RNA sequence: AGAUGGGGUAGAGGUCGCGGUUUUUAUGAGUAAUGCAGAGGAGACUAAAGGUGAGUCUAUGAAACUGCCAUGAAAGGAAAAGCCGCCGAAGUCCGCGCAAUCAUCCUUUACUUGGCGGGCUGGGGCUGUCUCCGAAUAGGAACAGAACUGUCACGUUAAUUUUAUUAACGUGUUGAGCUAUCGAUGGA
Numbered sequence: 001a002g003a004u005g006g007g008g009u010a011g012a013g014g015u016c017g018c019g020g021u022u023u024u025u026a027u028g029a030g031u032a033a034u035g036c037a038g039a040g041g042a043g044a045c046u047a048a049a050g051g052u053g054a055g056u057c058u059a060u061g062a063a064a065c066u067g068c069c070a071u072g073a074a075a076g077g078a079a080a081a082g083c084c085g086c087c088g089a090a091g092u093c094c095g096c097g098c099a100a101u102c103a104u105c106c107u108u109u110a111c112u113u114g115g116c117g118g119g120c121u122g123g124g125g126c127u128g129u130c131u132c133c134g135a136a137u138a139g140g141a142a143c144a145g146a147a148c149u150g151u152c153a154c155g156u157u158a159a160u161u162u163u164a165u166u167a168a169c170g171u172g173u174u175g176a177g178c179u180a181u182c183g184a185u186g187g188a
Stems, first nucleotide, its partner, number of pairs: 007182005017086009033071002035068004090121007099112001101110001122149002126145004131140002152172006
Dot-bracket structure: ......(((((.....(((((((((.......((((((..........................)))).))......)))))))))...(((((((..(.(........).)..)))))))((..((((.((......)).))))..))..((((((.........)))))).....)))))......